[Rfam]
RNA sequence: GCUCAUCCGCCAACCGGUCAGGCCGUGUCGCGGAAGGUUCCAUAACCAGCCAAUUGCUUCGGAAACCGGGGCGUGAGGUCAGCG
Numbered sequence: 001g002c003u004c005a006u007c008c009g010c011c012a013a014c015c016g017g018u019c020a021g022g023c024c025g026u027g028u029c030g031c032g033g034a035a036g037g038u039u040c041c042a043u044a045a046c047c048a049g050c051c052a053a054u055u056g057c058u059u060c061g062g063a064a065a066c067c068g069g070g071g072c073g074u075g076a077g078g079u080c081a082g083c084g
Stems, first nucleotide, its partner, number of pairs: 002084001004082001006034005015025004036047004049079003056072007
Shown here is an 84-nucleotide sequence from Inhella gelatinilytica, a member of the family "SucA RNA motif". The literature on the family includes a 2007 paper in Nucleic Acids Res by Weinberg et al., "Identification of 22 candidate structured RNAs in bacteria using the CMfinder comparative genomics pipeline". The organism belongs to Inhella, within Bacteria. The family's consensus secondary structure is taken from published work.